[Rfam]
RNA sequence: GAGUGGGACAGAUCUUUUGGAAUUUUUCUAGUGGGGUUUUCACAAAACUGCAUUGGAAACCCCCC
Numbered sequence: 001g002a003g004u005g006g007g008a009c010a011g012a013u014c015u016u017u018u019g020g021a022a023u024u025u026u027u028c029u030a031g032u033g034g035g036g037u038u039u040u041c042a043c044a045a046a047a048c049u050g051c052a053u054u055g056g057a058a059a060c061c062c063c064c065c
Base pairs, nucleotide, nucleotide: 034062035061036060037059038058039057040056041055

The record is a 65-nucleotide RNA from Muntiacus reevesi, which matches "U7 small nuclear RNA" in Rfam. The source organism's lineage runs through Eukaryota, Bilateria, Vertebrata, Mammalia and Muntiacus. Pairs were carried over by alignment from the consensus structure, which was predicted with PFOLD. A reference for the family is Mowry and Steitz (1987), "Identification of the human U7 snRNP as one of several factors involved in the 3' end maturation of histone premessenger RNA's", Science.